The record is an 81-nucleotide RNA from Hymenolepis diminuta, which matches "mir-190 microRNA precursor family" in Rfam. A reference for the family is Kloosterman et al. (2006), "Cloning and expression of new microRNAs from zebrafish", Nucleic Acids Res. Its Rfam clan is "mir-50 clan". NCBI's taxonomy places the organism under Eukaryota, Spiralia, Platyhelminthes, Eucestoda, Hymenolepis. The match comes from Rfam's covariance-model search (55 bits). Gene Ontology terms of the family: miRNA-mediated post-transcriptional gene silencing and RISC complex.
Nucleotides: 081
Stems, first nucleotide, its partner, number of pairs: 005077005011070011023059004029054005
Number, partner (000 for none) and nucleotide at each position: 001000a002000u003000a004000u005077c006076a007075a008074u009073g010000a011070g012069a013068u014067a015066u016065g017064u018063u019062u020061g021060g022000g023059u024058u025057a026056c027000u028000u029054g030053g031052u032051g033050u034000u035000a036000u037000a038000u039000a040000u041000u042000u043000g044000a045000c046000u047000c048000u049000a050033a051032c052031a053030c054029c055000a056026g057025u058024g059023a060021c061020c062019g063018a064017a065016c066015a067014u068013a069012u070011u071000c072000c073009u074008a075007u076006u077005g078000u079000g080000u081000g